[Rfam]
RNA sequence: AUAGCAGGCUGCAAUUACAGUGCUUCAUUCUGUGGGAGUACUGCCAUUUUCCUGCUGAGAAUAACUCUGUUAACGCUGUCUUCGGUUUCAUCUGUACGGUGGUGAAACUGUUUGUUAACAUGUACAAGU
Numbered sequence: 001a002u003a004g005c006a007g008g009c010u011g012c013a014a015u016u017a018c019a020g021u022g023c024u025u026c027a028u029u030c031u032g033u034g035g036g037a038g039u040a041c042u043g044c045c046a047u048u049u050u051c052c053u054g055c056u057g058a059g060a061a062u063a064a065c066u067c068u069g070u071u072a073a074c075g076c077u078g079u080c081u082u083c084g085g086u087u088u089c090a091u092c093u094g095u096a097c098g099g100u101g102g103u104g105a106a107a108c109u110g111u112u113u114g115u116u117a118a119c120a121u122g123u124a125c126a127a128g129u
Stems, first nucleotide, its partner, number of pairs: 003056006018043009066122001068120008083110010
RNA: Small nucleolar RNA SNORA69